[Rfam]
RNA sequence: GGUCAAAAUAUGCCGAAUCCGGAUAUACCGAAUAUCCGGUACGGGGGACGAUUUACUUUGGGGUGAAUGUUCGCGCUUUUGGCGGACAAGGGAGUUUCCUCUUCCCUAACCCGGCAGCUAACCUCGGAGGCGCCAGGAGGGAAAAA
Number, nucleotide and partner (000 for none) at each position: 001g000002g000003u000004c000005a000006a000007a000008a000009u000010a000011u132012g131013c130014c129015g000016a000017a000018u000019c039020c038021g037022g036023a035024u034025a033026u000027a000028c000029c000030g000031a000032a000033u025034a024035u023036c022037c021038g020039g019040u000041a000042c126043g125044g124045g123046g122047g000048a000049c000050g000051a000052u000053u000054u000055a000056c000057u000058u000059u000060g000061g112062g111063g110064u000065g000066a000067a000068u000069g087070u086071u085072c084073g000074c000075g000076c000077u000078u000079u000080u000081g000082g000083c000084g072085g071086a070087c069088a000089a000090g106091g105092g104093a103094g000095u000096u000097u000098c000099c000100u000101c000102u000103u093104c092105c091106c090107u000108a000109a000110c063111c062112c061113g000114g000115c000116a000117g000118c000119u000120a000121a000122c046123c045124u044125c043126g042127g000128a000129g014130g013131c012132g011133c000134c000135a000136g000137g000138a000139g000140g000141g000142a000143a000144a000145a000146a000